Shown here is an 86-nucleotide sequence from Pelomonas sp. Root1444, a member of the family "c-di-GMP-I riboswitch aptamer". The match comes from Rfam's covariance-model search (70 bits). The source organism's lineage runs through Bacteria, Pseudomonadota, Betaproteobacteria, Sphaerotilaceae and Roseateles.

[Rfam]
RNA sequence: UGAUGACAAAGGCACACCCGAGCGAAAGCCGGGGUCGCAAAGCUUCCGGUCUACAGCCUUAGGGCCAUGACAGCGGGGUUGCCCCA
Numbered sequence: 001u002g003a004u005g006a007c008a009a010a011g012g013c014a015c016a017c018c019c020g021a022g023c024g025a026a027a028g029c030c031g032g033g034g035u036c037g038c039a040a041a042g043c044u045u046c047c048g049g050u051c052u053a054c055a056g057c058c059u060u061a062g063g064g065c066c067a068u069g070a071c072a073g074c075g076g077g078g079u080u081g082c083c084c085c086a
Stems, first nucleotide, its partner, number of pairs: 012038002017033004022029002041080004046076003049071003056065003